The record is a 45-nucleotide RNA sequence from Phyllobacterium sp. YR531, which matches "Guanidine-II riboswitch aptamer (mini-ykkC)" in Rfam.
Lineage of the source: Bacteria > Pseudomonadati > Pseudomonadota > Phyllobacteriaceae > Phyllobacterium.
It scores 40 bits against the family's covariance model.
RNA sequence: CGCGCAGGACGACCUGCGCCAUGAAUCGUUUCGGGGACGGCCCCA
Numbered sequence: 001c002g003c004g005c006a007g008g009a010c011g012a013c014c015u016g017c018g019c020c021a022u023g024a025a026u027c028g029u030u031u032c033g034g035g036g037a038c039g040g041c042c043c044c045a
Base pairs, nucleotide, nucleotide: 002019003018004017005016006015007014008013033044034043035042036041